Overview
A member of the RNA family "Rotavirus cis-acting replication element (CRE)" from Rotavirus sp., 68 nucleotides long. Rfam's curators write: This family represents a Rotavirus cis-acting replication element (CRE) found at the 3'-end of rotavirus mRNAs. The literature on the family includes a 2001 paper in Virology by Chen et al., "Features of the 3'-consensus sequence of rotavirus mRNAs critical to minus strand synthesis".

RNA sequence: GGCGUUUAAUUCGCUAUCAAUUUGAGGAUGAUGAUGGCUUAGCAAGAAUAGAAAGCGCUUAUGUGACC
Numbered sequence: 001g002g003c004g005u006u007u008a009a010u011u012c013g014c015u016a017u018c019a020a021u022u023u024g025a026g027g028a029u030g031a032u033g034a035u036g037g038c039u040u041a042g043c044a045a046g047a048a049u050a051g052a053a054a055g056c057g058c059u060u061a062u063g064u065g066a067c068c
Base pairs, nucleotide, nucleotide: 001068002067004064005063007061008060009059012057013056014055015054017052018051020049021048022047023046
Rfam classes the family as a cis-regulatory element. The sequence is in the family's curated seed alignment. Pairs were carried over by alignment from the consensus structure, which was predicted with PFOLD.